Rfam assigns this 85-nucleotide RNA from Alaudala cheleensis to the family "Small nucleolar RNA SNORD45". It scores 49 bits against the family's covariance model. By type it is a C/D-box small nucleolar RNA. Gene Ontology terms of the family: RNA processing and nucleolus. A reference for the family is Galardi et al. (2002), "Purified box C/D snoRNPs are able to reproduce site-specific 2'-O-methylation of target RNA in vitro", Mol Cell Biol.
RNA sequence: GGCCUAGGAUGAGGUGCUGGCAUGUAUUAUCUGAGCACAGCUGAUGUCUCUCAUCUCUGCAGCUCUAGAAUUACUCUGAGGCCCC
Numbered sequence: 001g002g003c004c005u006a007g008g009a010u011g012a013g014g015u016g017c018u019g020g021c022a023u024g025u026a027u028u029a030u031c032u033g034a035g036c037a038c039a040g041c042u043g044a045u046g047u048c049u050c051u052c053a054u055c056u057c058u059g060c061a062g063c064u065c066u067a068g069a070a071u072u073a074c075u076c077u078g079a080g081g082c083c084c085c
Base pairs, nucleotide, nucleotide: 001083002082003081004080